Source information: This 154-nucleotide RNA sequence from Streptomyces sp. FH025 belongs to the Rfam family "c-di-AMP riboswitch aptamer (ydaO/yuaA leader)". The match comes from Rfam's covariance-model search (58 bits). NCBI's taxonomy places the organism under Bacteria, Bacillati, Actinomycetes, Streptomycetaceae, Streptomyces. Its family is annotated with regulation of gene expression and cyclic-di-AMP binding in the Gene Ontology.

[Rfam]
RNA sequence: UAGUCGGGGGCGCUGCGGAGCGGAGCCGGGGAACCACGUUCCUCCGGGGUGAAUCGGCGCCAGGUCGGCCGGUGGAACGGCCGUGAGGCGUCGUAGGGCAUGCUUCCGGCCCGAACCCGUCAGCUCACCCGGUAGGCGGACGUAGGAAGAAGGA
Numbered sequence: 001u002a003g004u005c006g007g008g009g010g011c012g013c014u015g016c017g018g019a020g021c022g023g024a025g026c027c028g029g030g031g032a033a034c035c036a037c038g039u040u041c042c043u044c045c046g047g048g049g050u051g052a053a054u055c056g057g058c059g060c061c062a063g064g065u066c067g068g069c070c071g072g073u074g075g076a077a078c079g080g081c082c083g084u085g086a087g088g089c090g091u092c093g094u095a096g097g098g099c100a101u102g103c104u105u106c107c108g109g110c111c112c113g114a115a116c117c118c119g120u121c122a123g124c125u126c127a128c129c130c131g132g133u134a135g136g137c138g139g140a141c142g143u144a145g146g147a148a149g150a151a152g153g154a
Stems, first nucleotide, its partner, number of pairs: 004024002025133006035046001047118003055093007096112004